The family of this 358-nucleotide RNA sequence from Rhodopseudomonas palustris is "Alphaproteobacteria transfer-messenger RNA".
[Rfam]
RNA sequence: GCCCUUUCGCCCCAAGCCAUUGCCCCCUAUAUUGGAAGCGUCGGGGCAACCCGACUAUGGAAAUAAAUGGCCGUCGUAAUAAACCAUUCGGACCCGGGGGCAGUACCCGGCGCCUCCACCAAAGCCCGUGAUUCCGCGGGUUUCGGCGGGGGCGAAAUAGGAUCGACGAGGGCGUAAAGGGCUUGCUUUUUCUCGGUAUUGUUCCGCCGUUAUCGGGCUAAUGCAAUAGUUGCCAACGACAACUAUGCUCCGGUUGCUCAGGCUGCGUAACGCGGUUUGAAAGACCAAGUCUAAAGUCCUAACGGGUUAAGCUCCGUUAGGCGGGGUUCGGAGGCACCUGGCAACAGAAGCCUCCACU
Numbered sequence: 001g002c003c004c005u006u007u008c009g010c011c012c013c014a015a016g017c018c019a020u021u022g023c024c025c026c027c028u029a030u031a032u033u034g035g036a037a038g039c040g041u042c043g044g045g046g047c048a049a050c051c052c053g054a055c056u057a058u059g060g061a062a063a064u065a066a067a068u069g070g071c072c073g074u075c076g077u078a079a080u081a082a083a084c085c086a087u088u089c090g091g092a093c094c095c096g097g098g099g100g101c102a103g104u105a106c107c108c109g110g111c112g113c114c115u116c117c118a119c120c121a122a123a124g125c126c127c128g129u130g131a132u133u134c135c136g137c138g139g140g141u142u143u144c145g146g147c148g149g150g151g152g153c154g155a156a157a158u159a160g161g162a163u164c165g166a167c168g169a170g171g172g173c174g175u176a177a178a179g180g181g182c183u184u185g186c187u188u189u190u191u192c193u194c195g196g197u198a199u200u201g202u203u204c205c206g207c208c209g210u211u212a213u214c215g216g217g218c219u220a221a222u223g224c225a226a227u228a229g230u231u232g233c234c235a236a237c238g239a240c241a242a243c244u245a246u247g248c249u250c251c252g253g254u255u256g257c258u259c260a261g262g263c264u265g266c267g268u269a270a271c272g273c274g275g276u277u278u279g280a281a282a283g284a285c286c287a288a289g290u291c292u293a294a295a296g297u298c299c300u301a302a303c304g305g306g307u308u309a310a311g312c313u314c315c316g317u318u319a320g321g322c323g324g325g326g327u328u329c330g331g332a333g334g335c336a337c338c339u340g341g342c343a344a345c346a347g348a349a350g351c352c353u354c355c356a357c358u
Stems, first nucleotide, its partner, number of pairs: 040055005059193005069187003073182003084172002088169003094110005111154007194209004199220001201218001204216002324339004330355006

About the family: Bacterial tmRNA, also known as 10Sa RNA or SsrA, is named for its dual tRNA and mRNA-like properties. For this family Rfam cites "Phylogenetic analysis of tmRNA secondary structure" (Williams and Bartel, RNA, 1996). By type it is a non-coding RNA gene.